[Rfam]
RNA sequence: AUAAUGGUACUUCCGUAACUCGCGGCCCGGUCACAAAGCAGACGGGGUGGCUGAAAUACCAAUGA
Numbered sequence: 001a002u003a004a005u006g007g008u009a010c011u012u013c014c015g016u017a018a019c020u021c022g023c024g025g026c027c028c029g030g031u032c033a034c035a036a037a038g039c040a041g042a043c044g045g046g047g048u049g050g051c052u053g054a055a056a057u058a059c060c061a062a063u064g065a
Stems, first nucleotide, its partner, number of pairs: 012062001013025004026047003030043003048061003
RNA: pemK RNA